[Rfam]
Rfam assigns this 75-nucleotide RNA from Streptomyces sp. AJS327 to the family "ASpks TB sRNA".
The family's consensus secondary structure is taken from published work.
It is annotated as an antisense RNA.
The match comes from Rfam's covariance-model search (77 bits).
RNA sequence: CUUCACCGAACCGAGCCACAACGGCCGCUCCUCCGGCCGCUGUUGACCGUAGGUCGCGAGGAGCGCCUGCGCCUC
Numbered sequence: 001c002u003u004c005a006c007c008g009a010a011c012c013g014a015g016c017c018a019c020a021a022c023g024g025c026c027g028c029u030c031c032u033c034c035g036g037c038c039g040c041u042g043u044u045g046a047c048c049g050u051a052g053g054u055c056g057c058g059a060g061g062a063g064c065g066c067c068u069g070c071g072c073c074u075c
Base pairs, nucleotide, nucleotide: 015025016024017023031071033069038065039064043060044059047056049054
NCBI's taxonomy places the organism under Bacteria, Bacillati, Actinomycetota, Streptomycetaceae, Streptomyces.